[Rfam]
RNA sequence: AUAAAUCUUCGGGGUCGGGUGUAAGUCCCAACUGGCGGUAAAGUCCGCGACCUGUUUUCUGCUAAGAGUGGAGGAUGGCUGAACCGGUGAUCUGCAGAUCAGAAAUUCCGGUACCAACAGUAAAGUCUGGAUGAAAGAAGAUGUAU
Numbered sequence: 001a002u003a004a005a006u007c008u009u010c011g012g013g014g015u016c017g018g019g020u021g022u023a024a025g026u027c028c029c030a031a032c033u034g035g036c037g038g039u040a041a042a043g044u045c046c047g048c049g050a051c052c053u054g055u056u057u058u059c060u061g062c063u064a065a066g067a068g069u070g071g072a073g074g075a076u077g078g079c080u081g082a083a084c085c086g087g088u089g090a091u092c093u094g095c096a097g098a099u100c101a102g103a104a105a106u107u108c109c110g111g112u113a114c115c116a117a118c119a120g121u122a123a124a125g126u127c128u129g130g131a132u133g134a135a136a137g138a139a140g141a142u143g144u145a146u
Base pairs, nucleotide, nucleotide: 003144005142006141007140008139009138010137017029018028019027031126032125033116034115035048036047037046038045043114044113052078053077054076055075056074083112084111085110086109087108118129119128120127
Background:
Rfam assigns this 146-nucleotide RNA from Mediterraneibacter gnavus to the family "FMN riboswitch aptamer (RFN element)". A search with the family's covariance model found it, with a score of 99 bits. Lineage of the source: Bacteria > Bacillati > Lachnospirales > Lachnospiraceae > Mediterraneibacter gnavus.